[Rfam]
This 50-nucleotide sequence belongs to the Rfam family "chrB-b RNA".

RNA sequence: UGGGGAAAUCGCAGCCUCCCCAUUAAAUGGCAAUCCCAUUCAAGCGCUGC
Number, nucleotide and partner (000 for none) at each position: 001u022002g021003g020004g019005g018006a017007a000008a000009u000010c000011g050012c049013a048014g047015c046016c000017u006018c005019c004020c003021c002022a001023u000024u000025a000026a040027a039028u038029g037030g036031c000032a000033a000034u000035c000036c030037c029038a028039u027040u026041c000042a000043a000044g000045c000046g015047c014048u013049g012050c011